Shown here is an 88-nucleotide RNA from Streptomyces sp. NP160, a member of the family "c-di-GMP-II-GAG riboswitch aptamer". Rfam links the family to the GO terms cyclic-di-GMP binding and regulation of gene expression. Its Rfam clan is "c-di-GMP_II riboswitch clan". It scores 44 bits against the family's covariance model. The base pairs follow the family's consensus structure, which is taken from published work.
[Rfam]
RNA sequence: GCCACCGGGAGACGCGAGGAUCCCGAUCCGCGGACUGGUCGCCGCGUGCGGAUCGGGGGAGCGAGUGGCGAAACCGGAACCCGAGGAG
Number, nucleotide and partner (000 for none) at each position: 001g000002c000003c086004a000005c000006c083007g082008g081009g080010a000011g000012a000013c063014g062015c061016g000017a000018g000019g000020a000021u000022c057023c056024c055025g054026a053027u052028c051029c050030g000031c000032g000033g000034a000035c000036u000037g075038g074039u071040c070041g069042c068043c067044g000045c000046g000047u000048g000049c000050g029051g028052a027053u026054c025055g024056g023057g022058g000059g000060a000061g015062c014063g013064a000065g000066u000067g043068g042069c041070g040071a039072a000073a000074c038075c037076g000077g000078a000079a000080c009081c008082c007083g006084a000085g000086g003087a000088g000
The organism belongs to Streptomyces, within Bacteria.